[Rfam]
RNA sequence: CCGACGGGCCGUGACUGGCGCGCUGGGAUGGGAACGACCAUCGGGGAGCGGCCUGUGAACGAAGUGCCGUGCGCCUGGGCCACGGUG
Number, nucleotide and partner (000 for none) at each position: 001c000002c000003g000004a056005c055006g054007g053008g052009c051010c050011g049012u048013g000014a000015c045016u044017g075018g074019c073020g072021c071022g000023c000024u000025g000026g000027g000028a041029u040030g039031g038032g000033a000034a000035c000036g000037a000038c031039c030040a029041u028042c000043g000044g016045g015046g000047a000048g012049c011050g010051g009052c008053c007054u006055g005056u004057g000058a000059a000060c000061g000062a000063a000064g000065u000066g080067c079068c078069g000070u000071g021072c020073g019074c018075c017076u000077g000078g068079g067080c066081c000082a000083c000084g000085g000086u000087g000
Shown here is an 87-nucleotide sequence from Nocardia otitidiscaviarum, a member of the family "ZMP/ZTP riboswitch aptamer (pfl RNA motif)". The family's consensus secondary structure is taken from published work.